[Rfam]
RNA sequence: GCCGGGCACGGUGGCUUGUGCCUGUAAUCCAAGCUCCGGGGAGGCUGAGGCUGGCGGACCGCUGAGCCCGGGGGUUCUGGGCUGCAGGGAGCUGUGCCGAGCGGGCGUCCGCGCUAAGGCCGGCAUCGAUAUGGUGGCCCUGGGGGAGCCGGGGGCCACCAGGUCGCCUAAGGAGGGGUGAACCGGCCCAGGUCGGAGACGGAGCAGGUCAAAGCUCCCGUGGCGGUCAGUAGCGGGAUCGCGCCUGUGAAUAGCCACUGCAGCGUAGCCUGGGCAACAUAGAGACACACGGGCUCCA
Dot-bracket structure: (((((((((((....))))))))....(((.........)))))).(((.(((......(.((..(((((((....(((.(((((((.(.(((((.(...((((((((((.(((((.(((((.(((((((.((((((((((.((....)).)))))))))).))))((...)).(((((.....((((....(((....)))....))))...))))).))).)))))..)))))))...))))))))).)))))).))))))).)))))))))).....)).).....))).)))..
Numbered sequence: 001g002c003c004g005g006g007c008a009c010g011g012u013g014g015c016u017u018g019u020g021c022c023u024g025u026a027a028u029c030c031a032a033g034c035u036c037c038g039g040g041g042a043g044g045c046u047g048a049g050g051c052u053g054g055c056g057g058a059c060c061g062c063u064g065a066g067c068c069c070g071g072g073g074g075u076u077c078u079g080g081g082c083u084g085c086a087g088g089g090a091g092c093u094g095u096g097c098c099g100a101g102c103g104g105g106c107g108u109c110c111g112c113g114c115u116a117a118g119g120c121c122g123g124c125a126u127c128g129a130u131a132u133g134g135u136g137g138c139c140c141u142g143g144g145g146g147a148g149c150c151g152g153g154g155g156c157c158a159c160c161a162g163g164u165c166g167c168c169u170a171a172g173g174a175g176g177g178g179u180g181a182a183c184c185g186g187c188c189c190a191g192g193u194c195g196g197a198g199a200c201g202g203a204g205c206a207g208g209u210c211a212a213a214g215c216u217c218c219c220g221u222g223g224c225g226g227u228c229a230g231u232a233g234c235g236g237g238a239u240c241g242c243g244c245c246u247g248u249g250a251a252u253a254g255c256c257a258c259u260g261c262a263g264c265g266u267a268g269c270c271u272g273g274g275c276a277a278c279a280u281a282g283a284g285a286c287a288c289a290c291g292g293g294c295u296c297c298a
Stems, first nucleotide, its partner, number of pairs: 001045003004023008028042003047296003051292003060284001062282002066275007077268003081264007089256001091255005097249001101248008109237002112235005118228005124222003127166004132161010143150002167173002175218005185210004193202003